[Rfam]
RNA sequence: GCAUAGUGUUACCAUCAACAACCUUAACUUCAUUUACUUAUUCAAUGGCCAGGUAGGUAGAUGCUAGAUUCUAGAAAUAAAAUACAAGUUUCAAGUGGCCCUUGUCCCCUCUCCUACUCAAAUUCUGAAUCUAGUUGGCAAGUUUCCGAAAUCAAGGCAUAUAGUCAGUGAUGAUAGAAG
Numbered sequence: 001g002c003a004u005a006g007u008g009u010u011a012c013c014a015u016c017a018a019c020a021a022c023c024u025u026a027a028c029u030u031c032a033u034u035u036a037c038u039u040a041u042u043c044a045a046u047g048g049c050c051a052g053g054u055a056g057g058u059a060g061a062u063g064c065u066a067g068a069u070u071c072u073a074g075a076a077a078u079a080a081a082a083u084a085c086a087a088g089u090u091u092c093a094a095g096u097g098g099c100c101c102u103u104g105u106c107c108c109c110u111c112u113c114c115u116a117c118u119c120a121a122a123u124u125c126u127g128a129a130u131c132u133a134g135u136u137g138g139c140a141a142g143u144u145u146c147c148g149a150a151a152u153c154a155a156g157g158c159a160u161a162u163a164g165u166c167a168g169u170g171a172u173g174a175u176a177g178a179a180g
Stems, first nucleotide, its partner, number of pairs: 023180003030174005046059002049056001061160005067119002070116001074113002087110002092104004123150003127146003131142002
RNA: Beta-globin co-transcriptional cleavage ribozyme